Plastid-rps12 3UTR RNA: a 99-nucleotide sequence from Musa balbisiana. Rfam classes the family as a cis-regulatory element. Plastid rpl20 is a non-coding RNA (ncRNA) recognised in plastids. It was found in the three prime untranslated region (3UTR) of rps12 gene, its 3UTR location sugest a role in transcript maduration. Pairs were carried over by alignment from the consensus structure, which was predicted with LocARNA.
[Rfam]
RNA sequence: GGUUGCCAUUGGUGCAAAUACAAUCACCUAGAUUUGAAGAUGAAAAAGCAUUCCCCAUUGGUAGCAAAAGUCUUAUCCAUUAAGCGGAGGAAAAUAGAU
Numbered sequence: 001g002g003u004u005g006c007c008a009u010u011g012g013u014g015c016a017a018a019u020a021c022a023a024u025c026a027c028c029u030a031g032a033u034u035u036g037a038a039g040a041u042g043a044a045a046a047a048g049c050a051u052u053c054c055c056c057a058u059u060g061g062u063a064g065c066a067a068a069a070g071u072c073u074u075a076u077c078c079a080u081u082a083a084g085c086g087g088a089g090g091a092a093a094a095u096a097g098a099u
Base pairs, nucleotide, nucleotide: 009023010022011021053089055087056086057080058079060077061076062075063074064073
Dot-bracket structure: ........(((.........))).............................(.((((.(((((........))))).)).....)).)..........